[Rfam]
RNA sequence: GCAGCGCUGGCUCUCCGGAGCCAGCGAGGAUCGCAAC
Numbered sequence: 001g002c003a004g005c006g007c008u009g010g011c012u013c014u015c016c017g018g019a020g021c022c023a024g025c026g027a028g029g030a031u032c033g034c035a036a037c
Stems, first nucleotide, its partner, number of pairs: 005026009